[Rfam]
RNA sequence: UAUUAGGUUGGUGCAAAAGUAGUUGCAGUCGUUGCCAUUGAAAGUAAUGGCAAAAACAGCAACUACUUUUGCACCAACCUAAUA
Numbered sequence: 001u002a003u004u005a006g007g008u009u010g011g012u013g014c015a016a017a018a019g020u021a022g023u024u025g026c027a028g029u030c031g032u033u034g035c036c037a038u039u040g041a042a043a044g045u046a047a048u049g050g051c052a053a054a055a056a057c058a059g060c061a062a063c064u065a066c067u068u069u070u071g072c073a074c075c076a077a078c079c080u081a082a083u084a
Base pairs, nucleotide, nucleotide: 001084002083003082004081005080006079007078008077009076010075011074012073013072014071015070016069017068018067019066020065021064022063023062024061025060026059028057029056032053033052034051035050036049037048038047039046040045
The record is an 84-nucleotide RNA from Callithrix jacchus, which matches "mir-548 microRNA precursor family" in Rfam. The base pairs follow the family's consensus structure, which was predicted with WAR. Taxonomically the source falls in Callithrix (Eukaryota, Deuterostomia, Tetrapoda, Euarchontoglires). Rfam links the family to the GO terms miRNA-mediated post-transcriptional gene silencing and RISC complex.